[Rfam]
RNA sequence: UCGACUGUACUCGAACAGGAACACUCAUGUAGUGAUUUCCUUUCGUUCACAAGAGUACUCUUGACAAAACCCUAAACCGUGAUGAGGAGUUGUAUACCCCACCCUGAUGGAGUUUUAAUCGGUACAGUCAUGUACCCGACUUCGAUGAUCCAUCCCUUGCGGGUGUGGGUAUUGCUGAGCGGUU
Numbered sequence: 001u002c003g004a005c006u007g008u009a010c011u012c013g014a015a016c017a018g019g020a021a022c023a024c025u026c027a028u029g030u031a032g033u034g035a036u037u038u039c040c041u042u043u044c045g046u047u048c049a050c051a052a053g054a055g056u057a058c059u060c061u062u063g064a065c066a067a068a069a070c071c072c073u074a075a076a077c078c079g080u081g082a083u084g085a086g087g088a089g090u091u092g093u094a095u096a097c098c099c100c101a102c103c104c105u106g107a108u109g110g111a112g113u114u115u116u117a118a119u120c121g122g123u124a125c126a127g128u129c130a131u132g133u134a135c136c137c138g139a140c141u142u143c144g145a146u147g148a149u150c151c152a153u154c155c156c157u158u159g160c161g162g163g164u165g166u167g168g169g170u171a172u173u174g175c176u177g178a179g180c181g182g183u184u
Base pairs, nucleotide, nucleotide: 003039006035008034009033010032011031017028019026020025043067045065046064047063049061051059076183077182078181079180080179095171096170097169098168099167100165101164102163103162104161108152109151110150111149112140113139114138116134